[Rfam]
RNA sequence: GGCCGCGACACGGGGUGCCCGCAACCGAGCGGGCUGAGAUCAGACCCGUCGAACCUGCUCGAGUUCGUACUCGCGAAGGGAUUGUCCCCAUGACAGCUC
Number, nucleotide and partner (000 for none) at each position: 001g000002g000003c000004c000005g000006c000007g086008a085009c084010a083011c048012g047013g046014g045015g000016u042017g034018c033019c032020c031021g030022c000023a000024a000025c000026c000027g000028a000029g000030c021031g020032g019033g018034c017035u000036g000037a000038g000039a000040u000041c000042a016043g000044a000045c014046c013047c012048g011049u000050c000051g000052a000053a000054c079055c078056u077057g000058c000059u000060c073061g072062a071063g070064u000065u000066c000067g000068u000069a000070c063071u062072c061073g060074c000075g000076a000077a056078g055079g054080g000081a000082u000083u010084g009085u008086c007087c000088c000089c000090a000091u000092g000093a000094c000095a000096g000097c000098u000099c000
RNA: TPP riboswitch aptamer (THI element)
Organism: Aeromicrobium flavum